This 139-nucleotide RNA sequence from Paractinoplanes rishiriensis belongs to the Rfam family "c-di-AMP riboswitch aptamer (ydaO/yuaA leader)". The organism belongs to Paractinoplanes, within Bacteria. The match comes from Rfam's covariance-model search (84 bits).
RNA sequence: CCGGGGUCGCCGCCUAAUCGCCCGCUCCGGCGAGCCGGGGAACCACGUAUUACUUCCGGGGUGAAUCCGCACUAAUGCGGUAGGGAACUUCCGUCCCGAACCCGUCAGCUAACUCGGUCGGCGGCCGACGGAAGGAACA
Numbered sequence: 001c002c003g004g005g006g007u008c009g010c011c012g013c014c015u016a017a018u019c020g021c022c023c024g025c026u027c028c029g030g031c032g033a034g035c036c037g038g039g040g041a042a043c044c045a046c047g048u049a050u051u052a053c054u055u056c057c058g059g060g061g062u063g064a065a066u067c068c069g070c071a072c073u074a075a076u077g078c079g080g081u082a083g084g085g086a087a088c089u090u091c092c093g094u095c096c097c098g099a100a101c102c103c104g105u106c107a108g109c110u111a112a113c114u115c116g117g118u119c120g121g122c123g124g125c126c127g128a129c130g131g132a133a134g135g136a137a138c139a
Stems, first nucleotide, its partner, number of pairs: 011123004018033005034118006044058001059103003067080004083097004
Dot-bracket structure: ..........((((...(((((......)))))((((((....(.............)(((.....((((......))))..((((.......))))...))).........)))))).))))................